[Rfam]
RNA sequence: UUAAAAAAAAGCCAAACUUAUUGUGAAGUAAGGACGGAAAAUCACGAGUCUUUUUUACUAAAAGAUGGUCGGGUUGCAUAU
Numbered sequence: 001u002u003a004a005a006a007a008a009a010a011g012c013c014a015a016a017c018u019u020a021u022u023g024u025g026a027a028g029u030a031a032g033g034a035c036g037g038a039a040a041a042u043c044a045c046g047a048g049u050c051u052u053u054u055u056u057a058c059u060a061a062a063a064g065a066u067g068g069u070c071g072g073g074u075u076g077c078a079u080a081u
Stems, first nucleotide, its partner, number of pairs: 012037002017032006040075004045071003048066007
Notes:
This 81-nucleotide sequence from Candidatus Sulfurimonas marisnigri belongs to the Rfam family "c-di-GMP-I riboswitch aptamer". The organism belongs to Sulfurimonas, within Bacteria.